[Rfam]
RNA sequence: GGGACAGUACCCAAAAAGGGACUGUACCCAAAACGGGACAGUACCCAAAAAGGGACAGUACCCAAAAAGGGACAGUACCCAAAA
Numbered sequence: 001g002g003g004a005c006a007g008u009a010c011c012c013a014a015a016a017a018g019g020g021a022c023u024g025u026a027c028c029c030a031a032a033a034c035g036g037g038a039c040a041g042u043a044c045c046c047a048a049a050a051a052g053g054g055a056c057a058g059u060a061c062c063c064a065a066a067a068a069g070g071g072a073c074a075g076u077a078c079c080c081a082a083a084a
Base pairs, nucleotide, nucleotide: 001029002028003027004025005024006023007022008021010020011019052080053079054078055076056075058073059072061071062070063069